Background
Rfam assigns this 523-nucleotide part of an RNA from Dreissena polymorpha to the family "Eukaryotic large subunit ribosomal RNA". A search with the family's covariance model found it, with a score of 2994 bits. Lineage of the source: Eukaryota > Opisthokonta > Metazoa > Autobranchia > Dreissena.
RNA sequence: UAGAACAAUGUAGGUAAGGGAAGUCGGCAAAAUAGAUCCGUAACUUCGGGAAAAGGAUUGGCUCUAAGGGCCGGGCCGGUCGGGCUGCGGUGGAAAGCGGGCCGGGUGCGGGCGCGGUUUGUGCGAGGCCUCACGGCCGAGUCCGAACCGCUCGCCCAAGCCUGCCCGUGGACCGCCACAGCUUGCGGCGGGCGUCUCUCGGGGCGCUCGCUCGCUUCGGCCGGCGACUAACGGCCAACUUAGAACUGGUGCGGACCAGGGGAAUCCGACUGUCUAAUUAAAACAAAGCAUUGCGAUAGCCGUCACCUGGUGUUGACGCAAUGUGAUUUCUGCCCAGUGCUCUGAAUGUCAAAGUGAAGAAAUUCAACCAAGCGCGGGUAAACGGCGGGAGUAACUAUGACUCUCUUAAGGUAGCCAAAUGCCUCGUCAUCUAAUUAGUGACGCGCAUGAAUGGAUUAACGAGAUUCCCACUGUCCCUAUCUACUAUCUAGCGAAACCACAGGCAGGGGAACGGGCCUGCGCG
Numbered sequence: 001u002a003g004a005a006c007a008a009u010g011u012a013g014g015u016a017a018g019g020g021a022a023g024u025c026g027g028c029a030a031a032a033u034a035g036a037u038c039c040g041u042a043a044c045u046u047c048g049g050g051a052a053a054a055g056g057a058u059u060g061g062c063u064c065u066a067a068g069g070g071c072c073g074g075g076c077c078g079g080u081c082g083g084g085c086u087g088c089g090g091u092g093g094a095a096a097g098c099g100g101g102c103c104g105g106g107u108g109c110g111g112g113c114g115c116g117g118u119u120u121g122u123g124c125g126a127g128g129c130c131u132c133a134c135g136g137c138c139g140a141g142u143c144c145g146a147a148c149c150g151c152u153c154g155c156c157c158a159a160g161c162c163u164g165c166c167c168g169u170g171g172a173c174c175g176c177c178a179c180a181g182c183u184u185g186c187g188g189c190g191g192g193c194g195u196c197u198c199u200c201g202g203g204g205c206g207c208u209c210g211c212u213c214g215c216u217u218c219g220g221c222c223g224g225c226g227a228c229u230a231a232c233g234g235c236c237a238a239c240u241u242a243g244a245a246c247u248g249g250u251g252c253g254g255a256c257c258a259g260g261g262g263a264a265u266c267c268g269a270c271u272g273u274c275u276a277a278u279u280a281a282a283a284c285a286a287a288g289c290a291u292u293g294c295g296a297u298a299g300c301c302g303u304c305a306c307c308u309g310g311u312g313u314u315g316a317c318g319c320a321a322u323g324u325g326a327u328u329u330c331u332g333c334c335c336a337g338u339g340c341u342c343u344g345a346a347u348g349u350c351a352a353a354g355u356g357a358a359g360a361a362a363u364u365c366a367a368c369c370a371a372g373c374g375c376g377g378g379u380a381a382a383c384g385g386c387g388g389g390a391g392u393a394a395c396u397a398u399g400a401c402u403c404u405c406u407u408a409a410g411g412u413a414g415c416c417a418a419a420u421g422c423c424u425c426g427u428c429a430u431c432u433a434a435u436u437a438g439u440g441a442c443g444c445g446c447a448u449g450a451a452u453g454g455a456u457u458a459a460c461g462a463g464a465u466u467c468c469c470a471c472u473g474u475c476c477c478u479a480u481c482u483a484c485u486a487u488c489u490a491g492c493g494a495a496a497c498c499a500c501a502g503g504c505a506g507g508g509g510a511a512c513g514g515g516c517c518u519g520c521g522c523g
Stems, first nucleotide, its partner, number of pairs: 001490004010484007018476003035059005044049001060247002063244006069236005075225009084182003089177003097169004103164005110157004114151008123142002127138004248252001260469007267461002271285003288324008299311004328455003332386003337383002339379004344375001347374003355366004387405006406410001426442005503520005
Dot-bracket structure: ((((.....(((((((.(((..............(((((....(....).....)))))((.(((((((((((.((((((((((((..(((.....((((..(((((..((((((((((((.((..((((....))))..)).))))))))..))))..))))).)))).....)))..)))..................................)))))))))......)))))..)))))).))(...).......(((((((((..(((.........)))..((((((((...((((.....)))).....))))))))...(((.(((..((((((.(..(((.....((((....)))).....))))))))..)))))((((((.......))))))(...)...............(((((.......)))))..........)))....)).)))))))....))).)))))))..))))............(((((........)))))...